[Rfam]
RNA sequence: AACGACCACUAGGGGAGCCUUCGGGCUGAGACGGCAUGCGCCGGACCCUUCGAACCUGAUCUGGCUCAUACCAGCGUAGGGAAGUGGUGUGGGAUUCGU
Numbered sequence: 001a002a003c004g005a006c007c008a009c010u011a012g013g014g015g016a017g018c019c020u021u022c023g024g025g026c027u028g029a030g031a032c033g034g035c036a037u038g039c040g041c042c043g044g045a046c047c048c049u050u051c052g053a054a055c056c057u058g059a060u061c062u063g064g065c066u067c068a069u070a071c072c073a074g075c076g077u078a079g080g081g082a083a084g085u086g087g088u089g090u091g092g093g094a095u096u097c098g099u
Stems, first nucleotide, its partner, number of pairs: 006087005011049004017026003033042003055080004061074004
RNA: TPP riboswitch aptamer (THI element)
Organism: Exiguobacterium chiriqhucha